Background:
The family of this 79-nucleotide RNA sequence from Ornithorhynchus anatinus is "mir-19 microRNA precursor family". Its family is annotated with miRNA-mediated post-transcriptional gene silencing and RISC complex in the Gene Ontology. The literature on the family includes a 2002 paper in Genes Dev by Mourelatos et al., "miRNPs: a novel class of ribonucleoproteins containing numerous microRNAs". The family's consensus secondary structure was predicted with RNAalifold. NCBI's taxonomy places the organism under Eukaryota, Vertebrata, Amniota, Monotremata, Ornithorhynchus. Rfam 15.1 lists 2,337 matches to the family in 651 species.
[Rfam]
RNA sequence: UUCUGUGGUUAGUUUUGCAGAUUUGCAUCCAGCUGUUGGAUACUCUGCUGUGCAAAUCAUUGCAAAACUGACUGUGGCA
Numbered sequence: 001u002u003c004u005g006u007g008g009u010u011a012g013u014u015u016u017g018c019a020g021a022u023u024u025g026c027a028u029c030c031a032g033c034u035g036u037u038g039g040a041u042a043c044u045c046u047g048c049u050g051u052g053c054a055a056a057u058c059a060u061u062g063c064a065a066a067a068c069u070g071a072c073u074g075u076g077g078c079a
Base pairs, nucleotide, nucleotide: 003077004076005075006074007073008072009071010070011069012068013067014066015065016064017063018062019061022056023055024054025053026052027051028050031049032048033047